The family of this 133-nucleotide RNA from Baryphthengus martii is "Small nucleolar RNA SNORA17". The literature on the family includes a 1997 paper in J Mol Biol by Ofengand and Bakin, "Mapping to nucleotide resolution of pseudouridine residues in large subunit ribosomal RNAs from representative eukaryotes, prokaryotes, archaebacteria, mitochondria and chloroplasts". snoRNA ACA 17 belongs to the H/ACA family of snoRNAs and is predicted to guide pseudouridylation of the 28S rRNA at positions U4659 and U4598. It shares the same host gene together with ACA43. NB This family has a high threshold value to exclude a large number of closely related sequences that do not appear to have conserved H and ACA boxes, and may be pseudogenes. The family's RNA type in Rfam is H/ACA-box small nucleolar RNA. The family's consensus secondary structure was predicted with RNAalifold. Its Rfam clan is "SNORA17 clan". The match comes from Rfam's covariance-model search (72 bits).
RNA sequence: CCUGCCCCACUCGUGUUGCAGCCGUGGCUGUCGUGCCACGUUUGUGUCAUUAGGUGGCAGAGAGGAAAAGGCUGUGUCUUUGCUGGCGCUCUGGAAGCCGUGAGCGCUCAGGAAUGACGAGCAACCUGACAAU
Numbered sequence: 001c002c003u004g005c006c007c008c009a010c011u012c013g014u015g016u017u018g019c020a021g022c023c024g025u026g027g028c029u030g031u032c033g034u035g036c037c038a039c040g041u042u043u044g045u046g047u048c049a050u051u052a053g054g055u056g057g058c059a060g061a062g063a064g065g066a067a068a069a070g071g072c073u074g075u076g077u078c079u080u081u082g083c084u085g086g087c088g089c090u091c092u093g094g095a096a097g098c099c100g101u102g103a104g105c106g107c108u109c110a111g112g113a114a115u116g117a118c119g120a121g122c123a124a125c126c127u128g129a130c131a132a133u
Stems, first nucleotide, its partner, number of pairs: 002060005007054002009051001013047002018045004023040006069127003073123003080117003084110003087106005